mir-199 microRNA precursor family: an 80-nucleotide RNA from Eptatretus burgeri. About the family: This family consists of the microRNA (miRNA) precursor mir-199 which appears to be specific to humans. Animal miRNAs are transcribed as ~70nt precursors and subsequently processed by the Dicer enzyme to give a ~22nt product. In this case the mature sequence comes from the 3' arm of the precursor.

[Rfam]
RNA sequence: UGUCGGACUGCCCAGUGUUCAGACUACCUGUUCAGCCAAAGUGCUGCGAACAGUAGUCUGUACAUUGGUCAGGCCGGGAG
Numbered sequence: 001u002g003u004c005g006g007a008c009u010g011c012c013c014a015g016u017g018u019u020c021a022g023a024c025u026a027c028c029u030g031u032u033c034a035g036c037c038a039a040a041g042u043g044c045u046g047c048g049a050a051c052a053g054u055a056g057u058c059u060g061u062a063c064a065u066u067g068g069u070c071a072g073g074c075c076g077g078g079a080g
Stems, first nucleotide, its partner, number of pairs: 012068007020060007028053004033048001
The match comes from Rfam's covariance-model search (68 bits).